[Rfam]
Nucleotides: 121
Base pairs, nucleotide, nucleotide: 001120002119003118004117
Number, partner (000 for none) and nucleotide at each position: 001120u002119c003118c004117c005000a006000g007000u008000g009000a010000g011000g012000a013000a014000a015000c016000a017000c018000a019000u020000a021000u022000g023000u024000u025000a026000c027000u028000u029000c030000c031000u032000g033000u034000c035000c036000u037000a038000u039000u040000c041000c042000u043000a044000g045000a046000g047000c048000c049000u050000g051000u052000a053000a054000a055000g056000g057000u058000g059000g060000c061000c062000c063000a064000c065000u066000g067000g068000g069000g070000c071000u072000g073000g074000c075000u076000g077000g078000g079000a080000g081000g082000a083000a084000a085000g086000a087000g088000g089000a090000a091000a092000g093000u094000g095000u096000g097000u098000u099000g100000c101000a102000g103000a104000a105000g106000g107000a108000a109000c110000u111000g112000u113000c114000c115000g116000a117004g118003g119002g120001a121000u